[Rfam]
RNA sequence: UUAGCUUUUUUAGAUAGGUUUGUAUUCAUCAAGGUGGAUGCAAACGACCUACGUUUUGUAUCUAUCUAUGAUGGCUAAAGAGAUUUGACGUACCACCAGCCAUGUAGAGGAAAUUCUAAAUGGCUGAAGCAUAUCGCGAAUCAAUUUUCGUCUUUCCAUCAUCCAUUUAGAUUUCUAAG
Number, nucleotide and partner (000 for none) at each position: 001u078002u077003a076004g075005c074006u073007u000008u000009u000010u000011u068012a067013g066014a065015u064016a063017g000018g045019u044020u043021u042022g041023u040024a039025u038026u037027c036028a035029u034030c000031a000032a000033g000034g029035u028036g027037g026038a025039u024040g023041c022042a021043a020044a019045c018046g000047a000048c000049c000050u060051a059052c058053g000054u000055u000056u000057u000058g052059u051060a050061u000062c000063u016064a015065u014066c013067u012068a011069u000070g000071a000072u000073g006074g005075c004076u003077a002078a001079a000080g000081a000082g142083a141084u140085u139086u138087g137088a000089c136090g135091u000092a000093c000094c000095a000096c000097c000098a125099g124100c123101c122102a121103u120104g000105u118106a117107g116108a000109g000110g000111a000112a000113a000114u000115u000116c107117u106118a105119a000120a103121u102122g101123g100124c099125u098126g000127a000128a000129g000130c000131a000132u000133a000134u000135c090136g089137c087138g086139a085140a084141u083142c082143a155144a154145u000146u000147u000148u000149c000150g000151u000152c000153u000154u144155u143156c000157c000158a000159u000160c000161a000162u000163c000164c000165a000166u000167u000168u000169a000170g000171a000172u000173u000174u000175c000176u000177a000178a000179g000

The family of this 179-nucleotide sequence from Enterococcus florum is "Enterococcus sRNA 2410".
By type it is a small RNA.
Rfam's curators write: Produced as 2 transcripts on Northern blot. Expressed in mid, late exponential and early stationary phases of growth. Expression remained uniform under daptomycin exposure.